[Rfam]
RNA sequence: UUGCCCACUUUCAUGGUCUGUUCUUUAAGUGGCCAACACAGGGGGGUAUAUUAAAUGCUCUCUAAAACUCAAAGCAAAAUGUACGUUUUUCCUUUGAAUCCUGUCGUGAGCGAUACAC
Numbered sequence: 001u002u003g004c005c006c007a008c009u010u011u012c013a014u015g016g017u018c019u020g021u022u023c024u025u026u027a028a029g030u031g032g033c034c035a036a037c038a039c040a041g042g043g044g045g046g047u048a049u050a051u052u053a054a055a056u057g058c059u060c061u062c063u064a065a066a067a068c069u070c071a072a073a074g075c076a077a078a079a080u081g082u083a084c085g086u087u088u089u090u091c092c093u094u095u096g097a098a099u100c101c102u103g104u105c106g107u108g109a110g111c112g113a114u115a116c117a118c
Stems, first nucleotide, its partner, number of pairs: 002048005008042003014035002017032001018029001056112001058110003062106001069097006077089003

Notes
A member of the RNA family "Small nucleolar RNA SNORA26" from Hymenochirus boettgeri, 118 nucleotides long. From the family's description: The snoRNA HBI-6 belong to the H/ACA family of snoRNAs, guiding the pseudouridylation of position U4522 if the 28S rRNA. HBI-6 is the human orthologue of mouse MBI-6 snoRNA. Rfam 15.1 lists 1,943 matches to the family in 640 species. A reference for the family is Huttenhofer et al. (2001), "RNomics: an experimental approach that identifies 201 candidates for novel, small, non-messenger RNAs in mouse", EMBO J. The family's consensus secondary structure was predicted with RNAalifold. NCBI's taxonomy places the organism under Eukaryota, Teleostomi, Euteleostomi, Pipinae, Hymenochirus. It is annotated as an H/ACA-box small nucleolar RNA.